[Rfam]
RNA sequence: UGGCUGUGACGAUUCGUUUUGUUUCUCGAUUCUGAUGCUUCUAAUUCGGCGACCAAAUUCUCUGUGAUGACUUUGUUUGUGCGUGUCUGAGCCGC
Numbered sequence: 001u002g003g004c005u006g007u008g009a010c011g012a013u014u015c016g017u018u019u020u021g022u023u024u025c026u027c028g029a030u031u032c033u034g035a036u037g038c039u040u041c042u043a044a045u046u047c048g049g050c051g052a053c054c055a056a057a058u059u060c061u062c063u064g065u066g067a068u069g070a071c072u073u074u075g076u077u078u079g080u081g082c083g084u085g086u087c088u089g090a091g092c093c094g095c
Base pairs, nucleotide, nucleotide: 001094002093003092004091